[Rfam]
RNA sequence: UUAAUAAAUAGAGGUGCACUGAAGAUGAGUAUAUAGUAGGUGACAAGAGGGAAACCCUCAAUACUACUAUAAAAAGGCUGACGUGCCGAAGCUGUUGAAUAGUUAUCGAUUUAACGGCUGGGGGUUUAGUGAAUAGCUAAAUCACUGUCAUGGGGAUAAUGUCCAUGGGGCGCUAUUUGUUAA
Numbered sequence: 001u002u003a004a005u006a007a008a009u010a011g012a013g014g015u016g017c018a019c020u021g022a023a024g025a026u027g028a029g030u031a032u033a034u035a036g037u038a039g040g041u042g043a044c045a046a047g048a049g050g051g052a053a054a055c056c057c058u059c060a061a062u063a064c065u066a067c068u069a070u071a072a073a074a075a076g077g078c079u080g081a082c083g084u085g086c087c088g089a090a091g092c093u094g095u096u097g098a099a100u101a102g103u104u105a106u107c108g109a110u111u112u113a114a115c116g117g118c119u120g121g122g123g124g125u126u127u128a129g130u131g132a133a134u135a136g137c138u139a140a141a142u143c144a145c146u147g148u149c150a151u152g153g154g155g156a157u158a159a160u161g162u163c164c165a166u167g168g169g170g171c172g173c174u175a176u177u178u179g180u181u182a183a
Stems, first nucleotide, its partner, number of pairs: 006178006016086004023079002032071008090119011120146002123143008148168007
Shown here is a 183-nucleotide sequence from Natronincola ferrireducens, a member of the family "Lysine riboswitch aptamer". Pairs were carried over by alignment from the consensus structure, which is taken from published work.